This 57-nucleotide sequence from Striga hermonthica belongs to the Rfam family "Plastid-rps18 3UTR RNA". Taxonomically the source falls in Striga (Eukaryota, lamiids, Orobanchaceae, Buchnereae). For this family Rfam cites "Retrograde signaling in plants: A critical review focusing on the GUN pathway and beyond" (Richter et al., Plant Commun, 2023). Rfam classes the family as a cis-regulatory element. From the family's description: Plastid rps18 is a non-coding RNA (ncRNA) present in plastids. It was identified as a short stem-loop motif in the 3 prime untranslate region (3UTR) of rps18 gene.

RNA sequence: AGCCAGUAUUUUACGAUUAGAAAGCAACUGUUUCUUAUAUAGGUCGUGUAUUAAUUU
Numbered sequence: 001a002g003c004c005a006g007u008a009u010u011u012u013a014c015g016a017u018u019a020g021a022a023a024g025c026a027a028c029u030g031u032u033u034c035u036u037a038u039a040u041a042g043g044u045c046g047u048g049u050a051u052u053a054a055u056u057u
Stems, first nucleotide, its partner, number of pairs: 018037003022033004
Dot-bracket structure: .................(((.((((....)))).)))....................